Source information
Shown here is a 72-nucleotide RNA from Ceratodon purpureus, a member of the family "small nucleolar RNA snoR117".
RNA sequence: GGCUGUUGAUGAUACAAAUUGUCCGUACCAUUUGAGGCUUAAGGCCGUGAUGAAUGACAAUAUCUGAAGCCA
Numbered sequence: 001g002g003c004u005g006u007u008g009a010u011g012a013u014a015c016a017a018a019u020u021g022u023c024c025g026u027a028c029c030a031u032u033u034g035a036g037g038c039u040u041a042a043g044g045c046c047g048u049g050a051u052g053a054a055u056g057a058c059a060a061u062a063u064c065u066g067a068a069g070c071c072a
Base pairs, nucleotide, nucleotide: 001071002070003069004068
Dot-bracket structure: ((((...............................................................)))).
Its family is annotated with nucleolus and RNA processing in the Gene Ontology. The organism belongs to Ceratodon, within Eukaryota. By type it is a C/D-box small nucleolar RNA. Rfam 15.1 lists 419 matches to the family in 211 species. The literature on the family includes a 2009 paper in Nucleic Acids Res by Chen and Wu, "Mining small RNA sequencing data: a new approach to identify small nucleolar RNAs in Arabidopsis".